[Rfam]
RNA: Small nucleolar RNA SNORA14
RNA sequence: GAGCAUCCUUAAUAAACCCCCUGGUUGCCUUUUGUGGCCUCUGGGACAAGAACGGGUGCAAGAUCAACCUUAGAAUCCAAAGCCAAGAGCCUUGUGUCAGUAGCUCUGGGUUAUUUCACCUCUAAGACAGAA
Numbered sequence: 001g002a003g004c005a006u007c008c009u010u011a012a013u014a015a016a017c018c019c020c021c022u023g024g025u026u027g028c029c030u031u032u033u034g035u036g037g038c039c040u041c042u043g044g045g046a047c048a049a050g051a052a053c054g055g056g057u058g059c060a061a062g063a064u065c066a067a068c069c070u071u072a073g074a075a076u077c078c079a080a081a082g083c084c085a086a087g088a089g090c091c092u093u094g095u096g097u098c099a100g101u102a103g104c105u106c107u108g109g110g111u112u113a114u115u116u117c118a119c120c121u122c123u124a125a126g127a128c129a130g131a132a
Stems, first nucleotide, its partner, number of pairs: 003059004009051002020045005027038002064131002069126006081112004086107002089104002095100001